[Rfam]
RNA: Potassium channel RNA editing signal
RNA sequence: GUGGGCUACGGCGACAUGCACCCCGUGACCAUCGGGGGCAAAAUCGUGGGGUCCCUGUGCGCGAUCGCCGGGGUGCUGACAAUUGCCCUGCCUGUGCCUGUCAUCGUCUCCAAU
Numbered sequence: 001g002u003g004g005g006c007u008a009c010g011g012c013g014a015c016a017u018g019c020a021c022c023c024c025g026u027g028a029c030c031a032u033c034g035g036g037g038g039c040a041a042a043a044u045c046g047u048g049g050g051g052u053c054c055c056u057g058u059g060c061g062c063g064a065u066c067g068c069c070g071g072g073g074u075g076c077u078g079a080c081a082a083u084u085g086c087c088c089u090g091c092c093u094g095u096g097c098c099u100g101u102c103a104u105c106g107u108c109u110c111c112a113a114u
Base pairs, nucleotide, nucleotide: 001114002113004111005110008107009106010105011104013102014101015100016099018097019096020095021094037077038076039075040074050062